The family of this 359-nucleotide part of an RNA from Candidatus Methanohalarchaeum thermophilum is "Archaeal small subunit ribosomal RNA". Rfam 15.1 lists 709 matches to the family in 491 species. Lineage of the source: Archaea > Methanonatronarchaeia > Methanonatronarchaeales > Methanonatronarchaeaceae > Candidatus Methanohalarchaeum. The base pairs follow the family's consensus structure, which is taken from published work. The match comes from Rfam's covariance-model search (1578 bits). Clan: SSU clan. A reference for the family is Yusupov et al. (2001), "Crystal structure of the ribosome at 5.5 A resolution", Science.

RNA sequence: GGCCUAAAGCGUCCGUAGCCGGCCGGAUAAGUCCCUUGGGAAAUCUGGUGGCUUAACCACCAGGCGUCCAAGGGAUACUGUCUGGCUUGGGACCGGGAGAGGCUCCGGGUAUCCUAGGGGUAGGGGUGAAAUCCUGUAAUCCCUAGGAGACCACCAGUGGCGAAAGCUCGGGGCUGGAACGGGUCCGACGGUGAGGGACGAAAGCCAGGGGCACAAACCGGAUUAGAUACCCGGGUAGUCCUGGCCGUCAACGAUGCCCGCUAGGUGUAGGUCGUAGCACGUCUGCGGCCUGUGCCCUAGUGAAGAUGUUAAGCGGGCCGCCUGGGAAGUACGUCCGCAAGGAUGAAACUUAAAGGAAU
Numbered sequence: 001g002g003c004c005u006a007a008a009g010c011g012u013c014c015g016u017a018g019c020c021g022g023c024c025g026g027a028u029a030a031g032u033c034c035c036u037u038g039g040g041a042a043a044u045c046u047g048g049u050g051g052c053u054u055a056a057c058c059a060c061c062a063g064g065c066g067u068c069c070a071a072g073g074g075a076u077a078c079u080g081u082c083u084g085g086c087u088u089g090g091g092a093c094c095g096g097g098a099g100a101g102g103c104u105c106c107g108g109g110u111a112u113c114c115u116a117g118g119g120g121u122a123g124g125g126g127u128g129a130a131a132u133c134c135u136g137u138a139a140u141c142c143c144u145a146g147g148a149g150a151c152c153a154c155c156a157g158u159g160g161c162g163a164a165a166g167c168u169c170g171g172g173g174c175u176g177g178a179a180c181g182g183g184u185c186c187g188a189c190g191g192u193g194a195g196g197g198a199c200g201a202a203a204g205c206c207a208g209g210g211g212c213a214c215a216a217a218c219c220g221g222a223u224u225a226g227a228u229a230c231c232c233g234g235g236u237a238g239u240c241c242u243g244g245c246c247g248u249c250a251a252c253g254a255u256g257c258c259c260g261c262u263a264g265g266u267g268u269a270g271g272u273c274g275u276a277g278c279a280c281g282u283c284u285g286c287g288g289c290c291u292g293u294g295c296c297c298u299a300g301u302g303a304a305g306a307u308g309u310u311a312a313g314c315g316g317g318c319c320g321c322c323u324g325g326g327a328a329g330u331a332c333g334u335c336c337g338c339a340a341g342g343a344u345g346a347a348a349c350u351u352a353a354a355g356g357a358a359u
Base pairs, nucleotide, nucleotide: 001322002321003320009319011199012198013197014196016193018192019191020190022086023085024084025083026082027081028080030079031078032075033074034073035072036071037070038069039068040067045063046062047061048060049059050058051057090186091185092184093182094181095180101175102174103173104172105171106170107169108152109151112148113147114146115145116144117143118142119141123134124133125132157168160167161166204245205244206243207242208241209240213239214238218234219233220232221231256318257317258316259315260314261313264296265295266294267293268292269291270290271289272288273287274286275285276284277283300307301306324351325350326349333344334343335342336341